[Rfam]
RNA sequence: GGUCUGAUGCCACGUCUCUGGUAGCUAUAAGCUCUGACCAAAGAUGCUAUGAUUGGACCAAAAUCAAGAGUGCUUGUCAUUUAUUUCAUAUCCUGAUAGGAAUCUGCGUAUCCAAUAACAAUGAUUUUGCAGUGCCGAUUUUUGUGAUUACAUUU
Numbered sequence: 001g002g003u004c005u006g007a008u009g010c011c012a013c014g015u016c017u018c019u020g021g022u023a024g025c026u027a028u029a030a031g032c033u034c035u036g037a038c039c040a041a042a043g044a045u046g047c048u049a050u051g052a053u054u055g056g057a058c059c060a061a062a063a064u065c066a067a068g069a070g071u072g073c074u075u076g077u078c079a080u081u082u083a084u085u086u087c088a089u090a091u092c093c094u095g096a097u098a099g100g101a102a103u104c105u106g107c108g109u110a111u112c113c114a115a116u117a118a119c120a121a122u123g124a125u126u127u128u129g130c131a132g133u134g135c136c137g138a139u140u141u142u143u144g145u146g147a148u149u150a151c152a153u154u155u
Stems, first nucleotide, its partner, number of pairs: 002058007009050001013046005020039003024032003086147005099136002104132003108127001110125003